[Rfam]
RNA: Bacterial small subunit ribosomal RNA, nucleotides 560 to 911
Organism: Reichenbachiella faecimaris
Nucleotides: 352
Stems, first nucleotide, its partner, number of pairs: 001315003009312001011198004016192001018191003022085007030078002032074009045063007089185003092181006100174007107151001111147008122133003159166002203244006212238002217233004255311006263289010274278001293300002317344003326337004
Number, partner (000 for none) and nucleotide at each position: 001315g002314g003313u004000u005000u006000a007000a008000a009312g010000g011198g012197u013196a014195c015000g016192u017000a018191g019190g020189u021000g022085g023084c024083c025082u026081u027080a028079u029000a030078a031077g032074u033073c034072a035071g036070u037069g038068g039067u040066g041000a042000a043000a044000u045063g046062c047061u048060g049059c050058a051057g052000c053000u054000u055000a056000a057051c058050u059049g060048u061047a062046g063045c064000a065000c066040u067039g068038c069037c070036a071035u072034u073033g074032a075000u076000a077031c078030u079028g080027u081026a082025a083024g084023g085022c086000u087000u088000g089185a090184g091183u092181g093180u094179c095178g096177u097176u098000g099000a100174g101173g102172c103171a104170g105169g106168c107151g108000g109000a110000a111147u112146u113145u114144a115143u116142g117141g118140u119000g120000u121000a122133g123132c124131g125000g126000u127000g128000a129000a130000a131124u132123g133122c134000a135000u136000a137000g138000a139000u140118a141117c142116c143115a144114u145113a146112a147111a148000g149000a150000a151107c152000a153000c154000c155000g156000a157000u158000a159166g160165c161000g162000a163000a164000g165160g166159c167000a168106g169105c170104u171103u172102g173101c174100u175000a176097a177096g178095c179094g180093a181092c182000a183091a184090c185089u186000g187000a188000c189020a190019c191018u192016a193000a194000u195014g196013u197012a198011c199000g200000a201000a202000a203244g204243c205242g206241u207240g208239g209000g210000u211000a212238g213237c214000g215000a216000a217233c218232a219231g220230g221000a222000u223000u224000a225000g226000a227000u228000a229000c230220c231219c232218u233217g234000g235000u236000a237213g238212u239208c240207c241206a242205c243204g244203c245000c246000g247000u248000a249000a250000a251000c252000g253000a254000u255311g256310c257309u258308c259307a260306c261000u262000c263289g264288a265287u266286g267285u268284a269283u270282g271281c272280g273000a274278u275000a276000u277000u278274a279000c280272u281271g282270u283269a284268u285267g286266c287265g288264u289263c290000c291000a292000a293300g294299c295000g296000a297000a298000a299294g300293c301000g302000u303000u304000a305000a306260g307259u308258g309257a310256g311255c312009c313003a314002c315001c316000u317344g318343g319342g320000g321000a322000g323000u324000a325000c326337g327336c328335u329334c330000g331000c332000a333000a334329g335328a336327g337326u338000g339000a340000a341000a342319c343318u344317c345000a346000a347000a348000g349000g350000a351000a352000u